[Rfam]
RNA: Metazoan signal recognition particle RNA
RNA sequence: ACUGGGAGUCGUGGCGUACUCCUGUAAUCCAGCUACUUGGAGGUCGGGAGAUGAGGAUGGUUUGAGGCUGGGAGCCCUGCUGCGUAGUGAGUCAUGUUGACUGGGCGUCCGCACGAAGCUGGUCGUCAAUAUGGGCUCCUUGGAGGAGUCCGAGGAGACCAGGUUGGAUAAAGAGGGGCGAAUCGGGCCAGGGGGGUAACCCAGCAGCCAAAAGUCCCCGCGGUCAGCAGUCGUGGGAUCGCGCCCGGGAGUGGGAGCUACGUGGUAGCCCGGUCAAUACAGUCAGACCAUCUCCUUU
Dot-bracket structure: (((((((((........))))))....(((........)))))).((((((((....(((((...(((((((....((((((((((((...((((.(...((((((((((.(((((.(((((((((((((.(((.(((((((((....))))))))).))).))))........(((((......(((....(((....)))....)))....))))).)))))))))..)))))))...))))))))).))))..))))))))))))))))))).....)))))...))))))))..